[Rfam]
The family of this 169-nucleotide RNA sequence from Mesobacillus persicus is "glmS glucosamine-6-phosphate activated ribozyme aptamer". The source organism's lineage runs through Bacteria, Bacillota, Bacilli, Caryophanales and Mesobacillus. From the family's description: This entry contains a glucosamine-6-phosphate activated ribozyme that is found in the mRNA for GlmS. GlmS is an enzyme that uses fructose-6-phosphate and glutamine to generate glucosamine-6-phosphate. The ribozyme catalyses self cleavage of the glmS mRNA that is thought to regulate GlmS activity.
Nucleotides: 169
Base pairs, nucleotide, nucleotide: 020050021049022048023047024046025045026044027043029041059090060089061088062087063086068079069078070077071076091109092108093107094106095105096104113159114158115157116156117155119153127144128143129142130141131140132139133138
Number, partner (000 for none) and nucleotide at each position: 001000g002000g003000u004000u005000c006000a007000u008000u009000u010000a011000a012000a013000g014000c015000g016000c017000c018000a019000g020050g021049g022048c023047u024046a025045a026044u027043u028000c029041u030000g031000u032000c033000c034000g035000a036000a037000c038000a039000a040000g041029a042000g043027a044026a045025u046024u047023a048022g049021u050020u051000g052000a053000c054000g055000a056000g057000g058000u059090g060089g061088a062087g063086g064000u065000u066000u067000a068079u069078c070077g071076a072000g073000u074000u075000u076071u077070c078069g079068g080000c081000g082000g083000a084000u085000g086063c087062c088061u089060c090059c091109c092108g093107g094106c095105u096104g097000a098000a099000u100000a101000g102000c103000a104096c105095a106094g107093c108092c109091g110000u111000g112000a113159u114158u115157c116156c117155u118000g119153c120000u121000u122000u123000a124000a125000a126000a127144c128143a129142u130141u131140a132139g133138g134000g135000u136000a137000a138133c139132u140131u141130a142129a143128u144127g145000c146000a147000c148000a149000a150000a151000g152000a153119g154000a155117a156116g157115g158114g159113a160000a161000u162000g163000c164000u165000a166000a167000a168000a169000u